Glycine riboswitch aptamer: a 103-nucleotide RNA from Dankookia rubra.
[Rfam]
RNA sequence: UGAUCCCGCGCGGGAGAGAGGGAGGGUCCGUCCUACGGACCACCCCCGCCGAAGGCGCAACCGGCCCCCGGAAACGCUCAGGCACAUGAACCGCGCGGAGAAG
Numbered sequence: 001u002g003a004u005c006c007c008g009c010g011c012g013g014g015a016g017a018g019a020g021g022g023a024g025g026g027u028c029c030g031u032c033c034u035a036c037g038g039a040c041c042a043c044c045c046c047c048g049c050c051g052a053a054g055g056c057g058c059a060a061c062c063g064g065c066c067c068c069c070g071g072a073a074a075c076g077c078u079c080a081g082g083c084a085c086a087u088g089a090a091c092c093g094c095g096c097g098g099a100g101a102a103g
Base pairs, nucleotide, nucleotide: 006098007097008096009095010094011093012092013091020046021045022044048083049082050081051079052078055077056076057075061071062070
For this family Rfam cites "A glycine-dependent riboswitch that uses cooperative binding to control gene expression" (Mandal et al., Science, 2004).
Its family is annotated with glycine biosynthetic process in the Gene Ontology.